The record is a 93-nucleotide RNA sequence from Nyssa sinensis, which matches "MIR397 microRNA precursor family" in Rfam. For this family Rfam cites "Rice MicroRNA effector complexes and targets" (Wu et al., Plant Cell, 2009). Rfam links the family to the GO terms RISC complex and miRNA-mediated post-transcriptional gene silencing. Rfam 15.1 lists 496 matches to the family in 218 species.
[Rfam]
RNA sequence: CUUAAAAAUGUCAUUGUGUGCAGCGUUGAUGAUCUCCAUUUUCCUGAAAUUUCAAUGCGGUUUUCAUCUACGCUGCACUCAAUCAUGUUUUUA
Numbered sequence: 001c002u003u004a005a006a007a008a009u010g011u012c013a014u015u016g017u018g019u020g021c022a023g024c025g026u027u028g029a030u031g032a033u034c035u036c037c038a039u040u041u042u043c044c045u046g047a048a049a050u051u052u053c054a055a056u057g058c059g060g061u062u063u064u065c066a067u068c069u070a071c072g073c074u075g076c077a078c079u080c081a082a083u084c085a086u087g088u089u090u091u092u093a
Stems, first nucleotide, its partner, number of pairs: 006090006013083004018078009028068001030066003